[Rfam]
RNA sequence: UCCAUCGCGAGGUGGAAUCUGAAGAAAGCCGUAUACAAAAUGCUGACCUGACGAACAGGAAGUGCAUAAAGGCAGAGAUCCUUGGGAUGAGGGUGCUCAUGAAUCCGAAGUCCAAUACUUACUCGGAAGGGAUCGAUGUAUUUGCAUAGUGAUCAUGAACCGCCGUAUACGGU
Numbered sequence: 001u002c003c004a005u006c007g008c009g010a011g012g013u014g015g016a017a018u019c020u021g022a023a024g025a026a027a028g029c030c031g032u033a034u035a036c037a038a039a040a041u042g043c044u045g046a047c048c049u050g051a052c053g054a055a056c057a058g059g060a061a062g063u064g065c066a067u068a069a070a071g072g073c074a075g076a077g078a079u080c081c082u083u084g085g086g087a088u089g090a091g092g093g094u095g096c097u098c099a100u101g102a103a104u105c106c107g108a109a110g111u112c113c114a115a116u117a118c119u120u121a122c123u124c125g126g127a128a129g130g131g132a133u134c135g136a137u138g139u140a141u142u143u144g145c146a147u148a149g150u151g152a153u154c155a156u157g158a159a160c161c162g163c164c165g166u167a168u169a170c171g172g173u
Stems, first nucleotide, its partner, number of pairs: 001016006028173005035166002040156003044152001046150001048149002062147005072139003077134006085113004091106004
RNA: Group II catalytic intron D1-D4-3